[Rfam]
RNA sequence: AUAAGUGUUGGGUGGAGAUGCACAGCCAUCGGAUUGCGUAGCAAAGGCUUCCACAGACGCGUCAUUCCGUCCGCUACCAUGGCUGAUUCCUCCUCCCUGACCGCAGCUGCUGUUCCGACAGUUAGCAGGAGACGUCGUCGCGACGCCGGCCCAACUGGCCUCACAUCGCUAGACACUGGAAUGCCUUACAACCAUUCCUGACGCACCUGACACCGACCGUGAGAGUCGUGUGUGCCGAACGCCGUUUCCGGAAGCCCGGAAACCGA
Numbered sequence: 001a002u003a004a005g006u007g008u009u010g011g012g013u014g015g016a017g018a019u020g021c022a023c024a025g026c027c028a029u030c031g032g033a034u035u036g037c038g039u040a041g042c043a044a045a046g047g048c049u050u051c052c053a054c055a056g057a058c059g060c061g062u063c064a065u066u067c068c069g070u071c072c073g074c075u076a077c078c079a080u081g082g083c084u085g086a087u088u089c090c091u092c093c094u095c096c097c098u099g100a101c102c103g104c105a106g107c108u109g110c111u112g113u114u115c116c117g118a119c120a121g122u123u124a125g126c127a128g129g130a131g132a133c134g135u136c137g138u139c140g141c142g143a144c145g146c147c148g149g150c151c152c153a154a155c156u157g158g159c160c161u162c163a164c165a166u167c168g169c170u171a172g173a174c175a176c177u178g179g180a181a182u183g184c185c186u187u188a189c190a191a192c193c194a195u196u197c198c199u200g201a202c203g204c205a206c207c208u209g210a211c212a213c214c215g216a217c218c219g220u221g222a223g224a225g226u227c228g229u230g231u232g233u234g235c236c237g238a239a240c241g242c243c244g245u246u247u248c249c250g251g252a253a254g255c256c257c258g259g260a261a262a263c264c265g266a
Stems, first nucleotide, its partner, number of pairs: 014093004023085007031078002036074003040049003056071004094130002097128003133203004137174003140169004148160004178198006210233004214228004244263007
The family of this 266-nucleotide RNA sequence from Stutzerimonas nosocomialis is "rne-II RNA". It scores 224 bits against the family's covariance model. By type it is a cis-regulatory element. Pairs were carried over by alignment from the consensus structure, which is taken from published work.